[Rfam]
The family of this 83-nucleotide RNA from Enterococcus hirae is "RNA anti-toxin A". The family's consensus secondary structure was predicted with RNAalifold. Rfam 15.1 lists 190 matches to the family in 120 species.

RNA sequence: UAAUGAAUACGAAAAGAGGAGUUGCGCUAACAACUCCUUAACAGCACCGUUUAAGACGGUGACCAGUUUAAUAUUAUUUUUGA
Numbered sequence: 001u002a003a004u005g006a007a008u009a010c011g012a013a014a015a016g017a018g019g020a021g022u023u024g025c026g027c028u029a030a031c032a033a034c035u036c037c038u039u040a041a042c043a044g045c046a047c048c049g050u051u052u053a054a055g056a057c058g059g060u061g062a063c064c065a066g067u068u069u070a071a072u073a074u075u076a077u078u079u080u081u082g083a
Base pairs, nucleotide, nucleotide: 023032024031046060047059048058049057050056051055
The literature on the family includes a 2010 paper in Nucleic Acids Res by Fozo et al., "Abundance of type I toxin-antitoxin systems in bacteria: searches for new candidates and discovery of novel families".
A search with the family's covariance model found it, with a score of 63 bits.